Shown here is a 74-nucleotide RNA from Gemmobacter aquatilis, a member of the family "tRNA". A search with the family's covariance model found it, with a score of 66 bits. The literature on the family includes a 1993 paper in Trends Biochem Sci by Hou, "The tertiary structure of tRNA and the development of the genetic code". The family's consensus secondary structure is taken from published work. Transfer RNA (tRNA) molecules are approximately 80 nucleotides in length. Lineage of the source: Bacteria > Alphaproteobacteria > Rhodobacterales > Paracoccaceae > Gemmobacter.
[Rfam]
RNA sequence: GGACCCGUAGCUCAGCUGGAUAGAGCAUCAGACUACGAAUCUGAGGGUCGGGCGUUCGAAUCGCUCCGGGUCCA
Numbered sequence: 001g002g003a004c005c006c007g008u009a010g011c012u013c014a015g016c017u018g019g020a021u022a023g024a025g026c027a028u029c030a031g032a033c034u035a036c037g038a039a040u041c042u043g044a045g046g047g048u049c050g051g052g053c054g055u056u057c058g059a060a061u062c063g064c065u066c067c068g069g070g071u072c073c074a
Base pairs, nucleotide, nucleotide: 001073002072003071004070005069006068007067010026011025012024013023028044029043030042031041032040050066051065052064053063054062